About this RNA: Lysine riboswitch aptamer: a 184-nucleotide RNA from Gracilibacillus halophilus. Taxonomically the source falls in Gracilibacillus halophilus (Bacteria, Bacillota, Bacillaceae, Gracilibacillus). Riboswitches are metabolite binding domains within certain messenger RNAs that serve as precision sensors for their corresponding targets. Gene Ontology term of the family: lysine biosynthetic process. The base pairs follow the family's consensus structure, which is taken from published work. A search with the family's covariance model found it, with a score of 116 bits.
[Rfam]
RNA sequence: AGUGAGAGUAGAGGCGCGAUGACCAUGAGUAAAUAUCUUGAAGGUGAUGUUCCUGUAGAUAGGUAUUGAAAGGGGAAUUUGCCGAAGUGAAAUAGAAAUAACAUCAUUUUAUUUCACUGGUCCACCAUUGAAGAAAUGCUGGGCUGUCAUAUAGUGGAAUACUAUAUGGAGGGCUAUCUCACGC
Numbered sequence: 001a002g003u004g005a006g007a008g009u010a011g012a013g014g015c016g017c018g019a020u021g022a023c024c025a026u027g028a029g030u031a032a033a034u035a036u037c038u039u040g041a042a043g044g045u046g047a048u049g050u051u052c053c054u055g056u057a058g059a060u061a062g063g064u065a066u067u068g069a070a071a072g073g074g075g076a077a078u079u080u081g082c083c084g085a086a087g088u089g090a091a092a093u094a095g096a097a098a099u100a101a102c103a104u105c106a107u108u109u110u111a112u113u114u115c116a117c118u119g120g121u122c123c124a125c126c127a128u129u130g131a132a133g134a135a136a137u138g139c140u141g142g143g144c145u146g147u148c149a150u151a152u153a154g155u156g157g158a159a160u161a162c163u164a165u166a167u168g169g170a171g172g173g174c175u176a177u178c179u180c181a182c183g184c
Base pairs, nucleotide, nucleotide: 006179008177009176010175011174016082017081018080019079023075024074032067033066034065035064036063037062038061086118087117088116089115090114091113092112093111094110095109096108097107119145120144121143122142123141124140126138127137128136129135147169148168149167150166151165152164153163